[Rfam]
RNA: ylbH leader
Organism: Shouchella lonarensis
RNA sequence: ACGAAAAAAAGGCGCCUCUUAUAAGGAGAGGCGCCUUGCCAUGAUGUUACAUGGCUAUGGGAGAGGAGAAACCGGAGGAAGAACUUAUGGGGAAACGUAAGUCUUCUCUGCGG
Numbered sequence: 001a002c003g004a005a006a007a008a009a010a011g012g013c014g015c016c017u018c019u020u021a022u023a024a025g026g027a028g029a030g031g032c033g034c035c036u037u038g039c040c041a042u043g044a045u046g047u048u049a050c051a052u053g054g055c056u057a058u059g060g061g062a063g064a065g066g067a068g069a070a071a072c073c074g075g076a077g078g079a080a081g082a083a084c085u086u087a088u089g090g091g092g093a094a095a096c097g098u099a100a101g102u103c104u105u106c107u108c109u110g111c112g113g
Base pairs, nucleotide, nucleotide: 011035012034013033014032015031016030017029018028019027036061037060038055039054040053041052042051043050073110074109075108076107078106079105080104081103083102084101085100086099087098